A member of the RNA family "Bacillaceae-1 RNA" from Bacillaceae bacterium SAS-127, 67 nucleotides long.
It is annotated as a small RNA.
The match comes from Rfam's covariance-model search (61 bits).
The family's consensus secondary structure is taken from published work.
RNA sequence: AAGAGAGGAACAAAGGCUAAAAUCGUAACGUCCUGUUGCAGCGCCUUUGUAACCGGCAUUGUGCAGG
Numbered sequence: 001a002a003g004a005g006a007g008g009a010a011c012a013a014a015g016g017c018u019a020a021a022a023u024c025g026u027a028a029c030g031u032c033c034u035g036u037u038g039c040a041g042c043g044c045c046u047u048u049g050u051a052a053c054c055g056g057c058a059u060u061g062u063g064c065a066g067g
Stems, first nucleotide, its partner, number of pairs: 011049007025039005053067002056064002